[Rfam]
RNA sequence: GUUGAUAGCUUAAUAGCACCUCAUAUAAUAAUGGGAAUAUGGCCCAUGAGUUUCUACCUGAUCACCGUAAAUGAUCGGACUAUGAGGGAGAGUAGACCUUUU
Numbered sequence: 001g002u003u004g005a006u007a008g009c010u011u012a013a014u015a016g017c018a019c020c021u022c023a024u025a026u027a028a029u030a031a032u033g034g035g036a037a038u039a040u041g042g043c044c045c046a047u048g049a050g051u052u053u054c055u056a057c058c059u060g061a062u063c064a065c066c067g068u069a070a071a072u073g074a075u076c077g078g079a080c081u082a083u084g085a086g087g088g089a090g091a092g093u094a095g096a097c098c099u100u101u102u
Base pairs, nucleotide, nucleotide: 019087020086021085022084023083024082025081029049031047032046033045034044035043058078059077060076061075062074063073064072
Source information: The record is a 102-nucleotide sequence from Falsibacillus albus, which matches "Purine riboswitch aptamer" in Rfam. Its family is annotated with purine nucleobase biosynthetic process in the Gene Ontology. The organism belongs to Falsibacillus, within Bacteria.